[Rfam]
RNA sequence: CGUUCUCUGCCGUGUGCGACAGCGAGCAAAACAUUCGCCUUGUCCCUUAACAACGACACCGGGGAUGUCAGGAAACCGGGAGUGCAUAUCCGCCCGCGAGCGGAAAGCCCGAAGGAAUCCCAGCGUUCCCACUUGAACCCAGGGUUCAAGGUCGUUUCGCAAGCAUCGACAUCGGCGGAGAACGC
Numbered sequence: 001c002g003u004u005c006u007c008u009g010c011c012g013u014g015u016g017c018g019a020c021a022g023c024g025a026g027c028a029a030a031a032c033a034u035u036c037g038c039c040u041u042g043u044c045c046c047u048u049a050a051c052a053a054c055g056a057c058a059c060c061g062g063g064g065a066u067g068u069c070a071g072g073a074a075a076c077c078g079g080g081a082g083u084g085c086a087u088a089u090c091c092g093c094c095c096g097c098g099a100g101c102g103g104a105a106a107g108c109c110c111g112a113a114g115g116a117a118u119c120c121c122a123g124c125g126u127u128c129c130c131a132c133u134u135g136a137a138c139c140c141a142g143g144g145u146u147c148a149a150g151g152u153c154g155u156u157u158c159g160c161a162a163g164c165a166u167c168g169a170c171a172u173c174g175g176c177g178g179a180g181a182a183c184g185c
Stems, first nucleotide, its partner, number of pairs: 002183010012172004017168003037152003041148002045144002061130003065126004072119002077115001084108002089104005
RNA: 6S / SsrS RNA
Organism: Luteimonas chenhongjianii